The family of this 181-nucleotide RNA sequence from Prochlorococcus sp. AG-363-N16 is "permuted transfer-messenger RNA". The base pairs follow the family's consensus structure, which is taken from published work.
[Rfam]
RNA sequence: GGUGAUCCACACCAAUAUUUCGGACAGCGGUUCGAUUCCGCUCAGCUCCAUUGUCUUAAGGGGCUGCAAUGGUUUCGACGGGAUAUAAGGCGGGUGACUGAAACCUGCUCGGUUAGAGCAAAACAUAACUGCUAACAAAAUCGUUAGUUUCUCCCGUCAAACAGCUCCUGUAGCUGCUUGA
Numbered sequence: 001g002g003u004g005a006u007c008c009a010c011a012c013c014a015a016u017a018u019u020u021c022g023g024a025c026a027g028c029g030g031u032u033c034g035a036u037u038c039c040g041c042u043c044a045g046c047u048c049c050a051u052u053g054u055c056u057u058a059a060g061g062g063g064c065u066g067c068a069a070u071g072g073u074u075u076c077g078a079c080g081g082g083a084u085a086u087a088a089g090g091c092g093g094g095u096g097a098c099u100g101a102a103a104c105c106u107g108c109u110c111g112g113u114u115a116g117a118g119c120a121a122a123a124c125a126u127a128a129c130u131g132c133u134a135a136c137a138a139a140a141u142c143g144u145u146a147g148u149u150u151c152u153c154c155c156g157u158c159a160a161a162c163a164g165c166u167c168c169u170g171u172a173g174c175u176g177c178u179u180g181a
Base pairs, nucleotide, nucleotide: 001099002098003097005095016085017084018083020081021080022079026042027041028040029039030038043066044065045064046063047062048061049060
Its family is annotated with RNA catabolic process in the Gene Ontology. The sequence is in the family's curated seed alignment. About the family: Bacterial tmRNA, also known as 10Sa RNA or SsrA, is named for its dual tRNA and mRNA-like properties. Its role is to liberate the mRNA from a stalled ribosome. To accomplish this part of the tmRNA is used as a reading frame that ends in a translation stop signal.